Notes: The family of this 100-nucleotide sequence from Falsochrobactrum shanghaiense is "rpsB sRNA". The family has 4 seed sequences and 245 matches in Rfam 15.1.

RNA sequence: CACACACGGGAUUGGGCUUUUGCCGGGAGAAAUCCGGCCUCAGCCUCCGGUGGCGAGCAAUUGCCUCAGCCCGUGGAGGUCAAACCGGAAAAGGAAAAUA
Numbered sequence: 001c002a003c004a005c006a007c008g009g010g011a012u013u014g015g016g017c018u019u020u021u022g023c024c025g026g027g028a029g030a031a032a033u034c035c036g037g038c039c040u041c042a043g044c045c046u047c048c049g050g051u052g053g054c055g056a057g058c059a060a061u062u063g064c065c066u067c068a069g070c071c072c073g074u075g076g077a078g079g080u081c082a083a084a085c086c087g088g089a090a091a092a093g094g095a096a097a098a099u100a
Stems, first nucleotide, its partner, number of pairs: 001078001003076001005075006014045002024036003052065005